Rfam assigns this 83-nucleotide RNA sequence from Alkalicoccus urumqiensis to the family "c-di-GMP-I riboswitch aptamer". Pairs were carried over by alignment from the consensus structure, which is taken from published work. Gene Ontology term of the family: cyclic-di-GMP binding. The match comes from Rfam's covariance-model search (64 bits).
[Rfam]
RNA sequence: UGAGGGUAAUGGUAAAGCAGUGGAAACGCUGCGGCACAAAGCUACAGGGGCUGUGGGGACACCUAUGCCAGCCAGCUGCCAUU
Numbered sequence: 001u002g003a004g005g006g007u008a009a010u011g012g013u014a015a016a017g018c019a020g021u022g023g024a025a026a027c028g029c030u031g032c033g034g035c036a037c038a039a040a041g042c043u044a045c046a047g048g049g050g051c052u053g054u055g056g057g058g059a060c061a062c063c064u065a066u067g068c069c070a071g072c073c074a075g076c077u078g079c080c081a082u083u
Stems, first nucleotide, its partner, number of pairs: 012037002017032006040077004047073002049069003056063002